[Rfam]
RNA sequence: GCAUGUGGAUAGUGUUCAGCACCAAGGACAGGGGUGUUUUCCUGUGUGCAGAUGGUGUUCAGCACCAAGGGGAGGUGUGUUUGCCU
Numbered sequence: 001g002c003a004u005g006u007g008g009a010u011a012g013u014g015u016u017c018a019g020c021a022c023c024a025a026g027g028a029c030a031g032g033g034g035u036g037u038u039u040u041c042c043u044g045u046g047u048g049c050a051g052a053u054g055g056u057g058u059u060c061a062g063c064a065c066c067a068a069g070g071g072g073a074g075g076u077g078u079g080u081u082u083g084c085c086u
Stems, first nucleotide, its partner, number of pairs: 002071001010067001012065005018059007026047001028045007

Overview
This 86-nucleotide RNA from Branchiostoma floridae belongs to the Rfam family "mir-2060 microRNA precursor family". Pairs were carried over by alignment from the consensus structure, which was predicted with RNAalifold. Gene Ontology terms of the family: RISC complex and miRNA-mediated post-transcriptional gene silencing. It scores 81 bits against the family's covariance model.